[Rfam]
RNA sequence: AAUUGCAAGUUUGAGGUCAUAGUAGAAGCACUCACUGUGCGGUUCUAUCAAAUUCCCCAAAAUCUGUGAAUUCUGCU
Numbered sequence: 001a002a003u004u005g006c007a008a009g010u011u012u013g014a015g016g017u018c019a020u021a022g023u024a025g026a027a028g029c030a031c032u033c034a035c036u037g038u039g040c041g042g043u044u045c046u047a048u049c050a051a052a053u054u055c056c057c058c059a060a061a062a063u064c065u066g067u068g069a070a071u072u073c074u075g076c077u
Base pairs, nucleotide, nucleotide: 013045014044016043017042018041021077022076023075024074025073026072027071028040029039030038049066050065052063053062054061